[Rfam]
Nucleotides: 112
Base pairs, nucleotide, nucleotide: 008098009097010096011063012062013061014060017032018031019030020029021028039057040056041055042054043053044052045051046050069093070092071091072090074087075086076085077084
Number, partner (000 for none) and nucleotide at each position: 001000a002000c003000g004000a005000c006000a007000g008098a009097a010096c011063g012062c013061g014060g015000g016000a017032g018031c019030c020029c021028g022000g023000c024000g025000c026000a027000c028021c029020g030019g031018g032017c033000u034000g035000a036000g037000a038000g039057u040056g041055c042054g043053g044052c045051u046050g047000a048000c049000g050046c051045g052044g053043c054042c055041g056040c057039a058000g059000a060014c061013c062012g063011c064000u065000c066000g067000a068000a069093c070092c071091u072090g073000a074087c075086c076085g077084g078000g079000u080000c081000a082000u083000g084077c085076c086075g087074g088000c089000g090072u091071a092070g093069g094000g095000a096010g097009u098008u099000g100000g101000u102000u103000c104000g105000a106000u107000u108000g109000a110000c111000g112000a

The record is a 112-nucleotide sequence from Sphaerisporangium melleum, which matches "TPP riboswitch aptamer (THI element)" in Rfam. Rfam links the family to the GO term thiamine pyrophosphate binding. About the family: Vitamin B(1) in its active form thiamin pyrophosphate (TPP) is an essential coenzyme that is synthesised by coupling of pyrimidine and thiazole moieties in bacteria. The previously detected thiamin-regulatory element, thi box was extended, resulting in a new, highly conserved RNA secondary structure, the THI element, which is widely distributed in eubacteria and also occurs in some archaea. Analysis of operon structures identified a large number of new candidate thiamin-regulated genes, mostly transporters, in various prokaryotic organisms. The THI element is a riboswitch that directly binds to TPP to regulate gene expression through a variety of mechanisms in archaea, bacteria and eukaryotes. through a variety of mechanisms in archaea, bacteria and eukaryotes.